glmS glucosamine-6-phosphate activated ribozyme aptamer: a 140-nucleotide RNA from Granulicatella sp. zg-ZJ.

RNA sequence: GGAAUAAAGAUAGCGCCAGACCAUUAAAUUGGUGACGAGGAAGAAGUUUAUCGAACAUUCGGCGGAUGACUUCAGGUUUGUGAAAUCUAAAGAAUAUAACAAAACAAUACUUAUUGACAAACAUAUAUUCAUUCACCUAA
Numbered sequence: 001g002g003a004a005u006a007a008a009g010a011u012a013g014c015g016c017c018a019g020a021c022c023a024u025u026a027a028a029u030u031g032g033u034g035a036c037g038a039g040g041a042a043g044a045a046g047u048u049u050a051u052c053g054a055a056c057a058u059u060c061g062g063c064g065g066a067u068g069a070c071u072u073c074a075g076g077u078u079u080g081u082g083a084a085a086u087c088u089a090a091a092g093a094a095u096a097u098a099a100c101a102a103a104a105c106a107a108u109a110c111u112u113a114u115u116g117a118c119a120a121a122c123a124u125a126u127a128u129u130c131a132u133u134c135a136c137c138u139a140a
Stems, first nucleotide, its partner, number of pairs: 020033004043073005051062004074088006092130007106115003
It is annotated as a riboswitch. The family's consensus secondary structure is taken from published work. Lineage of the source: Bacteria > Bacillati > Lactobacillales > Carnobacteriaceae > Granulicatella.